[Rfam]
RNA sequence: GGAUAACAUUAUUUUGCUAUUUCUAACCAAUAAUGCAAUAAUAUGUGAAAAAGUUAUCUCUCGUGUUAUUGCGCUAUUGGUCGGGAAUAGCAAAAAAUAAUAUCC
Numbered sequence: 001g002g003a004u005a006a007c008a009u010u011a012u013u014u015u016g017c018u019a020u021u022u023c024u025a026a027c028c029a030a031u032a033a034u035g036c037a038a039u040a041a042u043a044u045g046u047g048a049a050a051a052a053g054u055u056a057u058c059u060c061u062c063g064u065g066u067u068a069u070u071g072c073g074c075u076a077u078u079g080g081u082c083g084g085g086a087a088u089a090g091c092a093a094a095a096a097a098u099a100a101u102a103u104c105c
Stems, first nucleotide, its partner, number of pairs: 002104004012095009022085003026081007034073012047060002050057001
RNA: MIR6274 microRNA precursor family
Organism: Prunus armeniaca